[Rfam]
RNA sequence: GAGUUUGCCGGUGCGGCAUCAUCAAGAUUCACGCAGAGGAGCAGGCCUCGGUCUCUCUGGUGAGAAUCUUGAUGAUGCUGCAUCGGCAAUUAG
Numbered sequence: 001g002a003g004u005u006u007g008c009c010g011g012u013g014c015g016g017c018a019u020c021a022u023c024a025a026g027a028u029u030c031a032c033g034c035a036g037a038g039g040a041g042c043a044g045g046c047c048u049c050g051g052u053c054u055c056u057c058u059g060g061u062g063a064g065a066a067u068c069u070u071g072a073u074g075a076u077g078c079u080g081c082a083u084c085g086g087c088a089a090u091u092a093g
Stems, first nucleotide, its partner, number of pairs: 010084021032062002